A member of the RNA family "mraW RNA" from Branchiibius sp. NY16-3462-2, 113 nucleotides long. The base pairs follow the family's consensus structure, which is taken from published work.

[Rfam]
RNA sequence: UCGAUCGCGCUGACCGGUGGUCUUCAGCUGCCCAGCGCGUUCCGACAUCACUUCCCCGAUGCCGGAACGAGCGACCCGGCGGCUGGGGACCAGCGACCAGCGCGAAGCACAUC
Numbered sequence: 001u002c003g004a005u006c007g008c009g010c011u012g013a014c015c016g017g018u019g020g021u022c023u024u025c026a027g028c029u030g031c032c033c034a035g036c037g038c039g040u041u042c043c044g045a046c047a048u049c050a051c052u053u054c055c056c057c058g059a060u061g062c063c064g065g066a067a068c069g070a071g072c073g074a075c076c077c078g079g080c081g082g083c084u085g086g087g088g089a090c091c092a093g094c095g096a097c098c099a100g101c102g103c104g105a106a107g108c109a110c111a112u113c
Stems, first nucleotide, its partner, number of pairs: 006104007019091002022088011035075001036071001038069007046061003
A search with the family's covariance model found it, with a score of 52 bits. Rfam classes the family as a cis-regulatory element.